[Rfam]
TPP riboswitch aptamer (THI element): a 102-nucleotide sequence from Hungatella hathewayi.
Rfam links the family to the GO term thiamine pyrophosphate binding.
NCBI's taxonomy places the organism under Bacteria, Bacillota, Lachnospiraceae, Hungatella, Hungatella hathewayi.

RNA sequence: AUGACACGCUAGGGGAGCCGUCACGGCUGAGAAAGGUUAACUGCCUAACCCUCACUACUUGAACCGGAUAAUGCCGGCGUAAGGAAGCAUUUAAACUUACUU
Numbered sequence: 001a002u003g004a005c006a007c008g009c010u011a012g013g014g015g016a017g018c019c020g021u022c023a024c025g026g027c028u029g030a031g032a033a034a035g036g037u038u039a040a041c042u043g044c045c046u047a048a049c050c051c052u053c054a055c056u057a058c059u060u061g062a063a064c065c066g067g068a069u070a071a072u073g074c075c076g077g078c079g080u081a082a083g084g085a086a087g088c089a090u091u092u093a094a095a096c097u098u099a100c101u102u
Stems, first nucleotide, its partner, number of pairs: 006090001008088003011052004017027004034046004058083004064077004